[Rfam]
RNA: Metazoan signal recognition particle RNA
RNA sequence: GCAAGUCACCAUGCAUUGAUAGCUGUAACCCAAGCGGGGGCAGGGGUGGUGGAGUGCCGUAGAUUCAUGCGGUCCAUCAGUCAUGUGUCGAGACUGUGCCUAGUCAGAGUCUGCAGUGCACCUGUGUACUUCCUGGAAGGGGGGUGCACUUGAGCAUAAUGCACAGGGGACCAUGUCAGGCAGGCAACUGAGCAGCAUUACCUGUCGCUGUAGAUGGCUGCUAGAUCACACAGUUGAGCAUGCUGGUGGGGCUCCCGUAUGACACUCUUCCGGUACGACUACACCCCAU
Number, nucleotide and partner (000 for none) at each position: 001g041002c040003a000004a024005g023006u022007c000008a020009c000010c018011a017012u000013g000014c000015a000016u000017u011018g010019a000020u008021a000022g006023c005024u004025g000026u000027a000028a000029c038030c037031c036032a000033a000034g000035c000036g031037g030038g029039g000040g002041c001042a000043g287044g286045g285046g284047u283048g282049g000050u000051g279052g000053a000054g276055u275056g274057c273058c272059g271060u000061a266062g000063a000064u000065u262066c261067a260068u259069g258070c257071g256072g255073u000074c000075c000076a247077u246078c245079a244080g243081u000082c242083a241084u240085g239086u238087g000088u236089c000090g000091a000092g235093a234094c233095u232096g231097u230098g229099c000100c224101u223102a000103g222104u000105c220106a219107g218108a000109g215110u214111c213112u212113g211114c210115a209116g208117u207118g000119c154120a000121c152122c000123u000124g149125u148126g147127u146128a145129c144130u143131u142132c141133c140134u139135g000136g000137a000138a000139g134140g133141g132142g131143g130144g129145u128146g127147c126148a125149c124150u000151u000152g121153a000154g119155c161156a160157u000158a000159a000160u156161g155162c000163a205164c204165a203166g202167g201168g000169g000170a000171c000172c000173a198174u197175g196176u195177c000178a000179g000180g000181c190182a189183g188184g000185c000186a000187a000188c183189u182190g181191a000192g000193c000194a000195g176196c175197a174198u173199u000200a000201c167202c166203u165204g164205u163206c000207g117208c116209u115210g114211u113212a112213g111214a110215u109216g000217g000218c107219u106220g105221c000222u103223a101224g100225a000226u000227c000228a000229c098230a097231c096232a095233g094234u093235u092236g088237a000238g086239c085240a084241u083242g082243c080244u079245g078246g077247u076248g000249g000250g000251g000252c000253u000254c000255c072256c071257g070258u069259a068260u067261g066262a065263c000264a000265c000266u061267c000268u000269u000270c000271c059272g058273g057274u056275a055276c054277g000278a000279c051280u000281a000282c048283a047284c046285c045286c044287c043288a000289u000